[Rfam]
Annotation
Rfam assigns this 147-nucleotide RNA sequence from Methanosarcina sp. MTP4 to the family "Group II catalytic intron D1-D4-7". Rfam's curators write: Group II introns are found in rRNA, tRNA and mRNA of organelles in fungi, plants and protists, and also in mRNA in bacteria. Taxonomically the source falls in Methanosarcina (Archaea, Methanobacteriati, Methanobacteriota, Methanomicrobia).
RNA sequence: UACCCCUUCCAUUUGGGGUAAUCCUACUAUGACAUGCGUAGAUGGUAACGUCAGGGUAUGAAGCUCAUAGGACAAUGUAGAGAAGUUUGGAAGUCUAAUCUGGAUCAUCUGCUAGGAUAAGAAUACUAUGAAGAACGUAAUGUGAAC
Numbered sequence: 001u002a003c004c005c006c007u008u009c010c011a012u013u014u015g016g017g018g019u020a021a022u023c024c025u026a027c028u029a030u031g032a033c034a035u036g037c038g039u040a041g042a043u044g045g046u047a048a049c050g051u052c053a054g055g056g057u058a059u060g061a062a063g064c065u066c067a068u069a070g071g072a073c074a075a076u077g078u079a080g081a082g083a084a085g086u087u088u089g090g091a092a093g094u095c096u097a098a099u100c101u102g103g104a105u106c107a108u109c110u111g112c113u114a115g116g117a118u119a120a121g122a123a124u125a126c127u128a129u130g131a132a133g134a135a136c137g138u139a140a141u142g143u144g145a146a147c
Stems, first nucleotide, its partner, number of pairs: 002019005028069005033060005039054001041052004084101002087098003109116002125143002129139002
Notes: Pairs were carried over by alignment from the consensus structure. The family has 244 seed sequences and 1,296 matches in Rfam 15.1. The match comes from Rfam's covariance-model search (66 bits).